[Rfam]
The family of this 107-nucleotide RNA sequence from Paenibacillus sp. FSL H7-0737 is "Guanidine-I riboswitch aptamer". Taxonomically the source falls in Paenibacillus (Bacteria, Bacillati, Bacillota, Caryophanales). This family represents a conserved RNA structure found upstream of the ykkC and yxkD genes in Bacillus subtilis and related genes in other bacteria. Pairs were carried over by alignment from the consensus structure.
Nucleotides: 107
Base pairs, nucleotide, nucleotide: 007061008060009059010058011057012056015051016050020048021047022045023042024041025040026039027038028037062077063076064075065074066073082102084105088100089099090098
Number, partner (000 for none) and nucleotide at each position: 001000a002000a003000a004000u005000a006000g007061c008060g009059c010058a011057u012056c013000u014000a015051g016050g017000g018000u019000u020048c021047c022045g023042c024041u025040u026039u027038c028037u029000u030000c031000u032000u033000u034000g035000g036000a037028g038027g039026a040025a041024a042023g043000g044000u045022c046000u047021g048020g049000a050016c051015c052000g053000a054000g055000c056012g057011a058010u059009g060008c061007g062077g063076a064075c065074a066073c067000u068000a069000u070000g071000u072000a073066g074065u075064g076063u077062u078000a079000c080000a081000c082102c083000a084105c085000u086000a087000a088100g089099g090098g091000a092000c093000a094000a095000a096000a097000g098090c099089c100088c101000a102082g103000a104000a105084g106000g107000a